Shown here is a 74-nucleotide RNA sequence from Sulfitobacter sabulilitoris, a member of the family "tRNA".
It is annotated as a transfer RNA.
A search with the family's covariance model found it, with a score of 72 bits.
Pairs were carried over by alignment from the consensus structure, which is taken from published work.
Lineage of the source: Bacteria > Pseudomonadati > Pseudomonadota > Rhodobacterales > Sulfitobacter.
RNA sequence: GGCGUGGUAGCUCAGUUGGUUAGAGCGAACGACUCAUAAUCGUUAGGUCGGUGGUUCAAGUCCACCUCACGCCA
Numbered sequence: 001g002g003c004g005u006g007g008u009a010g011c012u013c014a015g016u017u018g019g020u021u022a023g024a025g026c027g028a029a030c031g032a033c034u035c036a037u038a039a040u041c042g043u044u045a046g047g048u049c050g051g052u053g054g055u056u057c058a059a060g061u062c063c064a065c066c067u068c069a070c071g072c073c074a
Stems, first nucleotide, its partner, number of pairs: 001073007010026004028044005050066005